[Rfam]
RNA sequence: UUGACGCGUCAUCAUCGAUGAAUGUGCGUUUAAUCACUUCAAACGGCUAACAAGUCUCAGUAUGAUGGCAGAAGAUUAACCCUUGCCCUUUCCGGCGAGGGUUUUCUUUUACG
Number, nucleotide and partner (000 for none) at each position: 001u000002u000003g000004a000005c000006g000007c000008g000009u000010c000011a000012u000013c000014a000015u000016c000017g000018a000019u000020g040021a039022a038023u000024g037025u036026g035027c000028g000029u000030u000031u000032a000033a000034u000035c026036a025037c024038u022039u021040c020041a000042a000043a000044c000045g000046g000047c000048u000049a000050a000051c000052a000053a000054g000055u000056c000057u000058c000059a000060g000061u000062a000063u000064g000065a000066u000067g000068g000069c000070a000071g000072a000073a000074g000075a000076u000077u000078a103079a102080c101081c100082c099083u098084u097085g096086c095087c094088c000089u000090u000091u000092c000093c000094g087095g086096c085097g084098a083099g082100g081101g080102u079103u078104u000105u000106c000107u000108u000109u000110u000111a000112c000113g000
This 113-nucleotide RNA sequence from Klebsiella indica belongs to the Rfam family "Enterobacteria rnk leader". Gene Ontology term of the family: regulation of gene expression. The match comes from Rfam's covariance-model search (72 bits). On this family, see Naville and Gautheret, Genome Biol 2010: "Premature terminator analysis sheds light on a hidden world of bacterial transcriptional attenuation". Lineage of the source: Bacteria > Pseudomonadati > Pseudomonadota > Enterobacterales > Klebsiella.